[Rfam]
Rfam assigns this 198-nucleotide RNA sequence from Nocardioides sp. Leaf285 to the family "Actinobacteria sRNA Ms_IGR-5". A reference for the family is Li et al. (2013), "Identification of small RNAs in Mycobacterium smegmatis using heterologous Hfq", RNA. A search with the family's covariance model found it, with a score of 125 bits. The source organism's lineage runs through Bacteria, Bacillati, Actinomycetota, Propionibacteriales and Nocardioides.
RNA sequence: ACACGGGAAAGGAGGUGGUCCGAAGAAUGAUUUCUUCUAGGACGCGUGAGGUGGCUGCCCGCUAGCAGCCCAGCGCCAACGAGGGGUGGAAGUCCCUCCGGCUGCUGGUGAAUCCUCAGCAGUCACCCGACCCGCAGGUGAUCCGGUCGCACGUCCGCCGGAGCGGCUCCCCGGAGCCACACCUGCGGGUCGUCCCAC
Numbered sequence: 001a002c003a004c005g006g007g008a009a010a011g012g013a014g015g016u017g018g019u020c021c022g023a024a025g026a027a028u029g030a031u032u033u034c035u036u037c038u039a040g041g042a043c044g045c046g047u048g049a050g051g052u053g054g055c056u057g058c059c060c061g062c063u064a065g066c067a068g069c070c071c072a073g074c075g076c077c078a079a080c081g082a083g084g085g086g087u088g089g090a091a092g093u094c095c096c097u098c099c100g101g102c103u104g105c106u107g108g109u110g111a112a113u114c115c116u117c118a119g120c121a122g123u124c125a126c127c128c129g130a131c132c133c134g135c136a137g138g139u140g141a142u143c144c145g146g147u148c149g150c151a152c153g154u155c156c157g158c159c160g161g162a163g164c165g166g167c168u169c170c171c172c173g174g175a176g177c178c179a180c181a182c183c184u185g186c187g188g189g190u191c192g193u194c195c196c197a198c
Base pairs, nucleotide, nucleotide: 014059015058016057017056018055019054060110061109062108063107064106065105066104068102069101070100073097075095128192129191130190131189132188133187134186135185136184137183138182139181140180142162143161144160145159146158147157